The family of this 113-nucleotide RNA from Metabacillus litoralis is "epsC RNA".
The source organism's lineage runs through Bacteria, Bacilli, Caryophanales, Bacillaceae and Metabacillus.
It is annotated as a cis-regulatory element.
Pairs were carried over by alignment from the consensus structure, which is taken from published work.

RNA sequence: AGGUGAUAUCUCCUAUCCUUUAUCAAUGGAGGUACUCGGCCGUGCUGUGGGUUGAAAGAUACCUUAGACGCUUUGUCGUCAAGAGUAUGGUGUGAGGGCGGGUUAAAUGCCCA
Numbered sequence: 001a002g003g004u005g006a007u008a009u010c011u012c013c014u015a016u017c018c019u020u021u022a023u024c025a026a027u028g029g030a031g032g033u034a035c036u037c038g039g040c041c042g043u044g045c046u047g048u049g050g051g052u053u054g055a056a057a058g059a060u061a062c063c064u065u066a067g068a069c070g071c072u073u074u075g076u077c078g079u080c081a082a083g084a085g086u087a088u089g090g091u092g093u094g095a096g097g098g099c100g101g102g103u104u105a106a107a108u109g110c111c112c113a
Stems, first nucleotide, its partner, number of pairs: 001019003007034007035096004039091008049064004067080004100112004